About this RNA: The family of this 182-nucleotide RNA sequence from Sarcina sp. DSM 11001 is "Clostridiales-1 RNA". The source organism's lineage runs through Bacteria, Bacillati, Bacillota, Clostridiaceae and Sarcina. A search with the family's covariance model found it, with a score of 87 bits.

[Rfam]
Nucleotides: 182
Stems, first nucleotide, its partner, number of pairs: 001182007010066001013063001016060003020056001022054009032043004070137004075132003080127004087120002089117011139172003143168003150162004
Number, partner (000 for none) and nucleotide at each position: 001182a002181a003180u004179a005178a006177a007176c008000a009000a010066c011000g012000a013063g014000u015000c016060a017059a018058g019000c020056g021000g022054c023053u024052g025051c026050a027049a028048a029047u030046g031000c032043c033042a034041u035040g036000c037000u038000c039000g040035c041034a042033u043032g044000a045000g046030c047029a048028u049027u050026u051025g052024c053023a054022g055000a056020c057000a058018u059017u060016u061000g062000a063013c064000g065000a066010g067000c068000g069000u070137c071136c072135a073134a074000a075132c076131a077130u078000g079000a080127g081126g082125a083124a084000g085000a086000a087120g088119c089117c090116g091115u092114u093113u094112u095111g096110c097109g098108c099107g100000c101000g102000u103000u104000u105000u106000u107099c108098g109097u110096g111095c112094a113093a114092a115091a116090c117089g118000a119088g120087c121000g122000g123000a124083u125082u126081c127080c128000g129000a130077a131076u132075g133000g134073u135072u136071g137070g138000a139172g140171c141170g142000a143168u144167g145166c146000g147000a148000g149000a150162g151161c152160g153159c154000c155000c156000g157000u158000g159153g160152c161151g162150u163000g164000g165000a166145g167144c168143a169000g170141c171140g172139c173000g174000u175000a176007g177006u178005u179004u180003a181002u182001u